[Rfam]
RNA sequence: UCUGAAAGAUUUUGUUAAUUCAAUUCGUGAAUGUACUUCAUCUGGCAAUUAUCCUUUUGCUAAUGAAAUUCUGAAUAGUUUAUCUGAUGAUAUCAUUGAGAAAGGUGUUUGGACAGAA
Dot-bracket structure: ((((.............................................................................................................)))).
Shown here is a 118-nucleotide sequence from Trichobilharzia regenti, a member of the family "small nucleolar RNA snoR127". The family's RNA type in Rfam is C/D-box small nucleolar RNA. Pairs were carried over by alignment from the consensus structure, which was predicted with RNAalifold. The match comes from Rfam's covariance-model search (40 bits). The family has 3 seed sequences and 273 matches in Rfam 15.1.